[Rfam]
RNA sequence: GGAUGUGAGGGCAAUCUGGCUGUGAGAGCUCAUAUGCCAUUGAUUCUAUGAGUUGAUUUGACUGAUCUGGCUAGCUUAGGCAGGUGUUUCCUUUCUUCCUCAACAUUCCAUGUGUGUUCCUCCUGAAGCUGUGUGCUUGGUUAAUGAGGACAGCCUCCCCACUAGACAUGGUGUUGUUCAGUGGUCAAGGGUCUGUGGUAGCUGUGCUCCCCUGCUGGAAGCUCUAAGUAAACUCAAGGUCCACUUGUGGGUGAAUGUAGGAUAGUUAAACAUCCAGUACUGAAGACACAUCUGAACAAGAAGCUGCAUGCAGCAGUCUGACAGUGACUUU
Numbered sequence: 001g002g003a004u005g006u007g008a009g010g011g012c013a014a015u016c017u018g019g020c021u022g023u024g025a026g027a028g029c030u031c032a033u034a035u036g037c038c039a040u041u042g043a044u045u046c047u048a049u050g051a052g053u054u055g056a057u058u059u060g061a062c063u064g065a066u067c068u069g070g071c072u073a074g075c076u077u078a079g080g081c082a083g084g085u086g087u088u089u090c091c092u093u094u095c096u097u098c099c100u101c102a103a104c105a106u107u108c109c110a111u112g113u114g115u116g117u118u119c120c121u122c123c124u125g126a127a128g129c130u131g132u133g134u135g136c137u138u139g140g141u142u143a144a145u146g147a148g149g150a151c152a153g154c155c156u157c158c159c160c161a162c163u164a165g166a167c168a169u170g171g172u173g174u175u176g177u178u179c180a181g182u183g184g185u186c187a188a189g190g191g192u193c194u195g196u197g198g199u200a201g202c203u204g205u206g207c208u209c210c211c212c213u214g215c216u217g218g219a220a221g222c223u224c225u226a227a228g229u230a231a232a233c234u235c236a237a238g239g240u241c242c243a244c245u246u247g248u249g250g251g252u253g254a255a256u257g258u259a260g261g262a263u264a265g266u267u268a269a270a271c272a273u274c275c276a277g278u279a280c281u282g283a284a285g286a287c288a289c290a291u292c293u294g295a296a297c298a299a300g301a302a303g304c305u306g307c308a309u310g311c312a313g314c315a316g317u318c319u320g321a322c323a324g325u326g327a328c329u330u331u
Base pairs, nucleotide, nucleotide: 001109002108003107006102007101008100009099010098011097013094014093018091019090024088025087027085029083030082033079035074037070038069039068042067043066044065045064047061117171118170121166122165123140124139125138126137128136129135142161148158149157150156201271203269207265208264211261212260213259214258215257222253224251225250228248229247230246231245294331295330296329300322303317304316305315306314307313
7SK RNA: a 331-nucleotide RNA from Drymodes brunneopygia. It scores 163 bits against the family's covariance model. About the family: 7SK was discovered as an abundant small nuclear RNA in the mid-70s but a possible function has only recently been suggested. Two independent studies have found that 7SK RNA binds the CDK9/cyclin T complex (known as elongation factor P-TEFb). P-TEFb activates transcription by phosphorylating the C-terminal domain of RNA polymerase II. This process is negatively regulated by the 7SK RNP. The secondary structure of 7SK RNA shown here was proposed by Wasserman and Steitz on the basis of chemical modification and enzymatic cleavage experiments. This family contains a number of annotated pseudogenes and 7SK derived repeats. The base pairs follow the family's consensus structure, which is taken from published work. Taxonomically the source falls in Drymodes (Eukaryota, Craniata, Dipnotetrapodomorpha, Petroicidae). The family's RNA type in Rfam is non-coding RNA gene.